[Rfam]
RNA: c-di-AMP riboswitch aptamer (ydaO/yuaA leader)
Organism: Actinoplanes sp. N902-109
RNA sequence: ACCGGACCGGGACCUCAACCUCAAGGCAUGGAGCGGGGGACCCACACGUUCCUCGGCGCGCCACGUGCGCGCCUCGGGGUGAAGCCGCCAUGCGCGGCCGGGCUCCUCGGCCCGAACCCGACAGCUGACCUCGUAGGCGUGGAGGGUCUUUUU
Numbered sequence: 001a002c003c004g005g006a007c008c009g010g011g012a013c014c015u016c017a018a019c020c021u022c023a024a025g026g027c028a029u030g031g032a033g034c035g036g037g038g039g040a041c042c043c044a045c046a047c048g049u050u051c052c053u054c055g056g057c058g059c060g061c062c063a064c065g066u067g068c069g070c071g072c073c074u075c076g077g078g079g080u081g082a083a084g085c086c087g088c089c090a091u092g093c094g095c096g097g098c099c100g101g102g103c104u105c106c107u108c109g110g111c112c113c114g115a116a117c118c119c120g121a122c123a124g125c126u127g128a129c130c131u132c133g134u135a136g137g138c139g140u141g142g143a144g145g146g147u148c149u150u151u152u153u
Stems, first nucleotide, its partner, number of pairs: 002031002033134006043076001077119003085097004100113004